[Rfam]
RNA sequence: GCUGGACCAACUUCUGUUGGUGAGAGAGACAAGUUUUUCAUGCUGUGUGAAUUUGGGUCUCGCACCAAUAGAAGUUGGUACAUC
Numbered sequence: 001g002c003u004g005g006a007c008c009a010a011c012u013u014c015u016g017u018u019g020g021u022g023a024g025a026g027a028g029a030c031a032a033g034u035u036u037u038u039c040a041u042g043c044u045g046u047g048u049g050a051a052u053u054u055g056g057g058u059c060u061c062g063c064a065c066c067a068a069u070a071g072a073a074g075u076u077g078g079u080a081c082a083u084c
Stems, first nucleotide, its partner, number of pairs: 001084001003082002005079001007078009017068006026061004
Dot-bracket structure: (.(((.(((((((((.((((((...((((............................)))).)))))).)))))))))).)).)